[Rfam]
RNA: Pseudomonadales-1 RNA
Organism: Acinetobacter baumannii
RNA sequence: CCAGUAUGAUUUCGUCACAUGCUGAGUUAGCCUCAGAGUGCUAAUUUGUGGGUUACACCCCAACCUAAGAAUUGAAAGACACCAAAGCAGAUUGAUAGCUAACUUUGAGAAGUGCAUAGUGUUGAGUAGCCUUAGGCCACAGUGCGGAUAAUGCUGUGGCA
Number, nucleotide and partner (000 for none) at each position: 001c000002c024003a023004g022005u021006a020007u019008g018009a000010u000011u000012u000013c000014g056015u055016c000017a053018c008019a007020u006021g005022c004023u003024g002025a000026g000027u102028u101029a100030g099031c098032c000033u000034c000035a000036g000037a000038g000039u000040g000041c000042u000043a000044a000045u000046u063047u062048g061049u000050g059051g058052g000053u017054u000055a015056c014057a000058c051059c050060c000061c048062a047063a046064c000065c000066u000067a000068a000069g000070a000071a000072u000073u000074g130075a000076a000077a000078g123079a122080c121081a120082c119083c000084a000085a117086a000087g115088c114089a113090g000091a000092u110093u109094g106095a000096u000097a104098g031099c030100u029101a028102a027103c000104u097105u000106u094107g000108a000109g093110a092111a000112g000113u089114g088115c087116a000117u085118a000119g082120u081121g080122u079123u078124g000125a000126g000127u000128a000129g000130c074131c000132u000133u000134a000135g000136g160137c159138c158139a157140c156141a155142g154143u153144g152145c000146g000147g000148a000149u000150a000151a000152u144153g143154c142155u141156g140157u139158g138159g137160c136161a000